[Rfam]
RNA sequence: ACUUAAUAUGUAUUCCGAGCCCUCUUAACCUGCAGACAAAUCCAGGUUACAGGGCCUAUAGGUAUAAGUGGAAACACUUAUGCCUCCCCGUAUUGUGGAAAGGAGUAGUGAAAGAACUGUU
Numbered sequence: 001a002c003u004u005a006a007u008a009u010g011u012a013u014u015c016c017g018a019g020c021c022c023u024c025u026u027a028a029c030c031u032g033c034a035g036a037c038a039a040a041u042c043c044a045g046g047u048u049a050c051a052g053g054g055c056c057u058a059u060a061g062g063u064a065u066a067a068g069u070g071g072a073a074a075c076a077c078u079u080a081u082g083c084c085u086c087c088c089c090g091u092a093u094u095g096u097g098g099a100a101a102g103g104a105g106u107a108g109u110g111a112a113a114g115a116a117c118u119g120u121u
Base pairs, nucleotide, nucleotide: 003115004114011107012106013105014104015103016102019055020054021053022052023051025049028047029046030045035042036041060085061084062083063082064081065080066079067078068077069076070075086098087097

The family of this 121-nucleotide RNA sequence from Syntrophomonas wolfei is "Molybdenum/Tungsten riboswitch aptamer (Moco RNA motif)". The organism belongs to Syntrophomonas wolfei subsp. wolfei, within Bacteria. For this family Rfam cites "in molybdenum cofactor and tungsten cofactor metabolism" (Regulski et al., Mol Microbiol, 2008). The base pairs follow the family's consensus structure, which is taken from published work.